This 143-nucleotide RNA sequence from Vibrio vulnificus belongs to the Rfam family "sok antitoxin (CssrC)". For this family Rfam cites "Nucleotide sequence and transcriptional analysis of a third function (Flm) involved in F-plasmid maintenance" (Loh et al., Gene, 1988). Rfam's curators put it in the seed alignment. By type it is an antitoxin RNA. Also identified in Shigella as CssrC.

[Rfam]
RNA sequence: GGGCGCUUAGACAUACCCAUGUCGAAGCGUUAGCCAAAACAUGGAUAUGAAAAAGCCCCGAAUGAACUAUAAAUUCAAACGAGGCCUUUACCAUGUAUAAGCAACUUGAUAAUAGCCUCUUACUUCAUAGGAGGCAAGUUAUG
Numbered sequence: 001g002g003g004c005g006c007u008u009a010g011a012c013a014u015a016c017c018c019a020u021g022u023c024g025a026a027g028c029g030u031u032a033g034c035c036a037a038a039a040c041a042u043g044g045a046u047a048u049g050a051a052a053a054a055g056c057c058c059c060g061a062a063u064g065a066a067c068u069a070u071a072a073a074u075u076c077a078a079a080c081g082a083g084g085c086c087u088u089u090a091c092c093a094u095g096u097a098u099a100a101g102c103a104a105c106u107u108g109a110u111a112a113u114a115g116c117c118u119c120u121u122a123c124u125u126c127a128u129a130g131g132a133g134g135c136a137a138g139u140u141a142u143g
Stems, first nucleotide, its partner, number of pairs: 001059003005056004012049004017044006027035001060080001063077001064075002081119005088112003092108002095105001123134003